[Rfam]
RNA sequence: GUCGGAUCGCCCGAAUUAACAGGUGUCAUGAUCACUUUAUCGUGGUUAAUUUAGCGUAAACUAAAAUAAUUCGCCGAAAUAGUAUAUUACAAAAAACCGAAGGUUGUCCCCGGUUGUAUCGUUAAUUUGCGACAGUAUCCAAGUAAUACUUCCUGUUAUCCAUGAUCUAUAAAUUUCUUCGCCGGAAACUGGAAAAAACGAUAU
Numbered sequence: 001g002u003c004g005g006a007u008c009g010c011c012c013g014a015a016u017u018a019a020c021a022g023g024u025g026u027c028a029u030g031a032u033c034a035c036u037u038u039a040u041c042g043u044g045g046u047u048a049a050u051u052u053a054g055c056g057u058a059a060a061c062u063a064a065a066a067u068a069a070u071u072c073g074c075c076g077a078a079a080u081a082g083u084a085u086a087u088u089a090c091a092a093a094a095a096a097c098c099g100a101a102g103g104u105u106g107u108c109c110c111c112g113g114u115u116g117u118a119u120c121g122u123u124a125a126u127u128u129g130c131g132a133c134a135g136u137a138u139c140c141a142a143g144u145a146a147u148a149c150u151u152c153c154u155g156u157u158a159u160c161c162a163u164g165a166u167c168u169a170u171a172a173a174u175u176u177c178u179u180c181g182c183c184g185g186a187a188a189c190u191g192g193a194a195a196a197a198a199c200g201a202u203a204u
Stems, first nucleotide, its partner, number of pairs: 002014004031046005070187003084163002088158001094128003101122001103120001105118003145157003